[Rfam]
RNA: mir-574 microRNA precursor family
Organism: Myotis myotis
Nucleotides: 079
Stems, first nucleotide, its partner, number of pairs: 008069011020057001022055005030047004
Number, partner (000 for none) and nucleotide at each position: 001000a002000g003000g004000c005000c006000u007000g008069g009068a010067g011066a012065g013064a014063g015062g016061c017060a018059g019000g020057g021000u022055c023054u024053g025052a026051u027000c028000c029000g030047c031046a032045g033044c034000c035000u036000c037000c038000a039000u040000g041000g042000c043000a044033g045032c046031u047030g048000u049000u050000a051026a052025u053024c054023a055022g056000c057020c058000a059018u060017u061016g062015c063014c064013u065012c066011u067010c068009u069008c070000u071000u072000u073000c074000u075000c076000c077000c078000c079000g